[Rfam]
Rfam assigns this 105-nucleotide sequence from Maribacter sp. ACAM166 to the family "SAM riboswitch aptamer (S box leader)". The match comes from Rfam's covariance-model search (78 bits). The source organism's lineage runs through Bacteria, Pseudomonadati, Flavobacteriales, Flavobacteriaceae and Maribacter. Rfam's curators write: The SAM riboswitch is found upstream of a number of genes which code for proteins involved in methionine or cysteine biosynthesis in Gram-positive bacteria.

RNA sequence: UAGUUAUCAAGAAAGGUGGAGGGAUUAGACCCUUUGAAACCUUAGCAACCCUUUGUUCCAUACAAAGAAGGUGCUACAUUCUACCCGAUUUGGGAAGGAUAACAG
Dot-bracket structure: (.((((((....(((((...(((..[[[[)))......)))))((((.((((((.........))))..))))))...(]]]]((((...))))..))))))).)